[Rfam]
RNA: Vault RNA
Organism: Bagarius yarrelli
RNA sequence: GCGUCUGCGCAGCCGAGUGGUUACUUCUCAAAUAAAACAUCUGGUGUGCUCGUAGAGCUACCGGGUUCGGACCCCUGGCGCUGUCUGACGUUUUA
Dot-bracket structure: .((((.(....((((.(.((....(((.........................................))))).))))).....).)))).....